[Rfam]
RNA sequence: AGGUUAUAAAAUUGUAAGUCGCUUUGGAUAAAAGUGUCUGCCAAAUAAAUAAAC
Numbered sequence: 001a002g003g004u005u006a007u008a009a010a011a012u013u014g015u016a017a018g019u020c021g022c023u024u025u026g027g028a029u030a031a032a033a034g035u036g037u038c039u040g041c042c043a044a045a046u047a048a049a050u051a052a053a054c
Stems, first nucleotide, its partner, number of pairs: 013043001014041003020036006
This 54-nucleotide RNA sequence from Nothobranchius furzeri belongs to the Rfam family "UnaL2 LINE 3' element".
The family's consensus secondary structure is taken from published work.
The organism belongs to Nothobranchius, within Eukaryota.
A search with the family's covariance model found it, with a score of 55 bits.
The family's RNA type in Rfam is cis-regulatory element.